The record is a 338-nucleotide RNA from Halanaerobium praevalens, which matches "Bacterial RNase P class A" in Rfam. Lineage of the source: Bacteria > Clostridia > Halanaerobiales > Halanaerobium > Halanaerobium praevalens. The family's consensus secondary structure is taken from published work.

RNA sequence: UAAGUUAGUCGAAUAAUCGCAUCGGUGACAGAUGAGGAAAGUCCGAGCUCCACAGGAUAGGAUGCCGGGUAACGCCCGGUGGAGGUGACUCCCAGGCUAGUGCCACAGAAAUAUACCGCCUUAUUUAAUUAAGGUAAGGGUGAAAAGGUAAGGUAAGAGCUUACCGGGUUUCAGGUAACUGAAAUGCCAGGUAAACCCCAUCUGGAGUAAGUCCAAAUAGGGAGAUUAUAGGAGUGAUCCGCUCUUCUCCGGGUAAGGACGCUUGAGGGUUCAGGCAACUGUUCCCCUAGACAGAUGAUUAUUUAAGACAGAACUCGGCUUAUAGACUAACUUAUUUU
Numbered sequence: 001u002a003a004g005u006u007a008g009u010c011g012a013a014u015a016a017u018c019g020c021a022u023c024g025g026u027g028a029c030a031g032a033u034g035a036g037g038a039a040a041g042u043c044c045g046a047g048c049u050c051c052a053c054a055g056g057a058u059a060g061g062a063u064g065c066c067g068g069g070u071a072a073c074g075c076c077c078g079g080u081g082g083a084g085g086u087g088a089c090u091c092c093c094a095g096g097c098u099a100g101u102g103c104c105a106c107a108g109a110a111a112u113a114u115a116c117c118g119c120c121u122u123a124u125u126u127a128a129u130u131a132a133g134g135u136a137a138g139g140g141u142g143a144a145a146a147g148g149u150a151a152g153g154u155a156a157g158a159g160c161u162u163a164c165c166g167g168g169u170u171u172c173a174g175g176u177a178a179c180u181g182a183a184a185u186g187c188c189a190g191g192u193a194a195a196c197c198c199c200a201u202c203u204g205g206a207g208u209a210a211g212u213c214c215a216a217a218u219a220g221g222g223a224g225a226u227u228a229u230a231g232g233a234g235u236g237a238u239c240c241g242c243u244c245u246u247c248u249c250c251g252g253g254u255a256a257g258g259a260c261g262c263u264u265g266a267g268g269g270u271u272c273a274g275g276c277a278a279c280u281g282u283u284c285c286c287c288u289a290g291a292c293a294g295a296u297g298a299u300u301a302u303u304u305a306a307g308a309c310a311g312a313a314c315u316c317g318g319c320u321u322a323u324a325g326a327c328u329a330a331c332u333u334a335u336u337u338u
Stems, first nucleotide, its partner, number of pairs: 001334010011323001012303007020034004025029001039321003043318005048207004055240004060203005065079005080094001081092004095198002100196002102192003116139002118135006147165006166187001168185007211260004221250005232244004267286003272281003